[Rfam]
The family of this 62-nucleotide sequence from a halophilic archaeon is "Guanidine-II riboswitch aptamer (mini-ykkC)". About the family: Simpler in structure and has fewer highly conserved nucleotide positions than the ykkC-yxkD leader.

RNA sequence: CGUCCAGGACGACCUGGAUGACCACCUCGCGCGGUGGGGACUGAAGUUCGCGCCCGACCCCG
Numbered sequence: 001c002g003u004c005c006a007g008g009a010c011g012a013c014c015u016g017g018a019u020g021a022c023c024a025c026c027u028c029g030c031g032c033g034g035u036g037g038g039g040a041c042u043g044a045a046g047u048u049c050g051c052g053c054c055c056g057a058c059c060c061c062g
Stems, first nucleotide, its partner, number of pairs: 001020008035062005